[Rfam]
RNA sequence: CACUUCCUUGUCUUGGGGAGCAUAGUGCGCAGUGAUCGUAAAGUGAGAGCACUGAUGCUGACACCCAUAUGUUAUCUUGUAUAACUGACCCGCGCCCAGCUGCCGUCAGGUAGUCUGAGCGCAAUUUUUGUAAAG
Numbered sequence: 001c002a003c004u005u006c007c008u009u010g011u012c013u014u015g016g017g018g019a020g021c022a023u024a025g026u027g028c029g030c031a032g033u034g035a036u037c038g039u040a041a042a043g044u045g046a047g048a049g050c051a052c053u054g055a056u057g058c059u060g061a062c063a064c065c066c067a068u069a070u071g072u073u074a075u076c077u078u079g080u081a082u083a084a085c086u087g088a089c090c091c092g093c094g095c096c097c098a099g100c101u102g103c104c105g106u107c108a109g110g111u112a113g114u115c116u117g118a119g120c121g122c123a124a125u126u127u128u129u130g131u132a133a134a135g
Stems, first nucleotide, its partner, number of pairs: 005019005020058004024053005030047001037043001092122004097117001100113005
RNA: U4atac minor spliceosomal RNA
Organism: Vanessa tameamea